[Rfam]
RNA sequence: UCCCAUAUCAAGAUGAAAUAUUCACGGAUGUAAACUAGUCAAAAGACUGUUAUCCGAGAGCGCAAUAACACCAUGUGGAUCUUUCCGUUGCCUUCCUUCUGACCCUUUUC
Numbered sequence: 001u002c003c004c005a006u007a008u009c010a011a012g013a014u015g016a017a018a019u020a021u022u023c024a025c026g027g028a029u030g031u032a033a034a035c036u037a038g039u040c041a042a043a044a045g046a047c048u049g050u051u052a053u054c055c056g057a058g059a060g061c062g063c064a065a066u067a068a069c070a071c072c073a074u075g076u077g078g079a080u081c082u083u084u085c086c087g088u089u090g091c092c093u094u095c096c097u098u099c100u101g102a103c104c105c106u107u108u109u110c
Stems, first nucleotide, its partner, number of pairs: 005107001025087004